[Rfam]
RNA sequence: GGCGUCCGCCUCGUGGACGCCGGUGCCCAUCCGGGCGGACUCCCGGUUACCCUGACGCCGUGCGGCCUCCCCACCUGGUCCGGGGAAACCGCAUAGCCGACAGCCGUCGCAUCCCAGGGAGCCCCUUCAUG
Number, nucleotide and partner (000 for none) at each position: 001g000002g000003c000004g000005u000006c000007c000008g000009c000010c000011u000012c000013g000014u000015g000016g000017a000018c000019g000020c000021c000022g000023g000024u000025g000026c000027c000028c000029a000030u000031c000032c000033g000034g000035g000036c000037g000038g000039a000040c000041u000042c000043c000044c000045g000046g000047u000048u000049a000050c000051c000052c000053u000054g000055a000056c000057g000058c000059c000060g000061u093062g092063c091064g090065g000066c000067c000068u086069c085070c084071c083072c000073a000074c000075c000076u000077g000078g000079u000080c000081c000082g000083g071084g070085g069086a068087a000088a000089c000090c064091g063092c062093a061094u000095a000096g110097c109098c000099g108100a107101c106102a000103g000104c000105c000106g101107u100108c099109g097110c096111a000112u000113c000114c000115c000116a000117g000118g000119g000120a000121g000122c000123c000124c000125c000126u000127u000128c000129a000130u000131g000
The record is a 131-nucleotide RNA sequence from Streptomyces lucensis, which matches "Streptomyces-metH RNA" in Rfam.
The family's RNA type in Rfam is small RNA.